RNA sequence: CGGACAGGGGGGUUCCCGCCGUACGGCGGGGCCUGUCCGACCCGAGGCCGCACCCGAUCCGUCGGGCGCGGCGGUGGUUGUCGCUCGGGGGUGAUCGCCG
Numbered sequence: 001c002g003g004a005c006a007g008g009g010g011g012g013u014u015c016c017c018g019c020c021g022u023a024c025g026g027c028g029g030g031g032c033c034u035g036u037c038c039g040a041c042c043c044g045a046g047g048c049c050g051c052a053c054c055c056g057a058u059c060c061g062u063c064g065g066g067c068g069c070g071g072c073g074g075u076g077g078u079u080g081u082c083g084c085u086c087g088g089g090g091g092u093g094a095u096c097g098c099c100g
Base pairs, nucleotide, nucleotide: 001039002038003037004036005035006034007033008032014031015030016029017028018027019026020025047072048071049070050069051068053066054065055064056063057062